[Rfam]
RNA: Purine riboswitch aptamer
RNA sequence: AAAAUCGAGUUCCCAUCCGUGCGUAUAAGCCUGAGAAUACGGCUCAGGCGUCUCUACCGGCAGCCGCAAACUGCCUGGCUACGCACGGCGGACGGAUGAUG
Numbered sequence: 001a002a003a004a005u006c007g008a009g010u011u012c013c014c015a016u017c018c019g020u021g022c023g024u025a026u027a028a029g030c031c032u033g034a035g036a037a038u039a040c041g042g043c044u045c046a047g048g049c050g051u052c053u054c055u056a057c058c059g060g061c062a063g064c065c066g067c068a069a070a071c072u073g074c075c076u077g078g079c080u081a082c083g084c085a086c087g088g089c090g091g092a093c094g095g096a097u098g099a100u101g
Stems, first nucleotide, its partner, number of pairs: 018087008029049007058077001059075005